The record is a 72-nucleotide sequence from Propioniciclava coleopterorum, which matches "Actinobacteria sRNA Ms_AS-8" in Rfam. Lineage of the source: Bacteria > Bacillati > Actinomycetes > Propionibacteriales > Propioniciclava. Rfam classes the family as a small RNA.
[Rfam]
RNA sequence: CCUGAUCAGAGCUACUUGGACUUCAGAUCAUCCCCGGGAAGGUGCGCCCCUUCACGUCACCCCGCCGAGGAC
Number, nucleotide and partner (000 for none) at each position: 001c000002c000003u030004g029005a028006u027007c026008a023009g022010a000011g000012c000013u000014a000015c000016u000017u000018g000019g000020a000021c000022u009023u008024c000025a000026g007027a006028u005029c004030a003031u000032c000033c000034c000035c000036g000037g000038g053039a052040a051041g050042g049043u000044g000045c000046g000047c000048c000049c042050c041051u040052u039053c038054a000055c000056g000057u000058c000059a000060c000061c000062c000063c000064g000065c000066c000067g000068a000069g000070g000071a000072c000